[Rfam]
RNA sequence: CGAAGCCACGCGGGAGAGUCCUGGACGCAAGCGUCCGGGCGCCGAAGGAGCAAGUCCCUCCCUUGAAUCUCUCAGGCCCCGUACCGCGUGGACGAG
Numbered sequence: 001c002g003a004a005g006c007c008a009c010g011c012g013g014g015a016g017a018g019u020c021c022u023g024g025a026c027g028c029a030a031g032c033g034u035c036c037g038g039g040c041g042c043c044g045a046a047g048g049a050g051c052a053a054g055u056c057c058c059u060c061c062c063u064u065g066a067a068u069c070u071c072u073c074a075g076g077c078c079c080c081g082u083a084c085c086g087c088g089u090g091g092a093c094g095a096g
Stems, first nucleotide, its partner, number of pairs: 006091008020039004041077003044073002048071003054064001
A member of the RNA family "Glycine riboswitch aptamer" from Streptomyces indicus, 96 nucleotides long. Lineage of the source: Bacteria > Actinomycetota > Actinomycetes > Streptomycetaceae > Streptomyces. The base pairs follow the family's consensus structure.